[Rfam]
RNA sequence: CUUUCCACACUAUUUAGUUCUACGGAAAC
Dot-bracket structure: .(((((..(((....))).....))))).
Shown here is a 29-nucleotide sequence from Pyrococcus abyssi, a member of the family "CRISPR RNA direct repeat element". Rfam's curators put it in the seed alignment. The family's consensus secondary structure was predicted with WAR. Gene Ontology term of the family: defense response.